[Rfam]
This 135-nucleotide sequence from Otolemur garnettii belongs to the Rfam family "Small nucleolar RNA SNORA61". Its family is annotated with RNA processing and nucleolus in the Gene Ontology. Rfam describes the family as follows. ACA61 is a member of the H/ACA class of snoRNA that guide the sites of modification of uridines to pseudouridines.

RNA sequence: AUCCUCCCGAUUCCCUUUCUUAUCAGAUCUGAAUACUGGUCUUGGUGGUUGUAAAAGGAAGAAAAGUAAUACACUGAAGCUGACCUCACAUUGUUGUAGUGUGGUAUAUAUCAUGUGGGCUAGUUUCAAACAAAG
Numbered sequence: 001a002u003c004c005u006c007c008c009g010a011u012u013c014c015c016u017u018u019c020u021u022a023u024c025a026g027a028u029c030u031g032a033a034u035a036c037u038g039g040u041c042u043u044g045g046u047g048g049u050u051g052u053a054a055a056a057g058g059a060a061g062a063a064a065a066g067u068a069a070u071a072c073a074c075u076g077a078a079g080c081u082g083a084c085c086u087c088a089c090a091u092u093g094u095u096g097u098a099g100u101g102u103g104g105u106a107u108a109u110a111u112c113a114u115g116u117g118g119g120c121u122a123g124u125u126u127c128a129a130a131c132a133a134a135g
Base pairs, nucleotide, nucleotide: 003061005059006058007057020048021047022046023045024044026041027040028039029038080123081122082121084119085118086117095113096112
Rfam's curators put it in the seed alignment.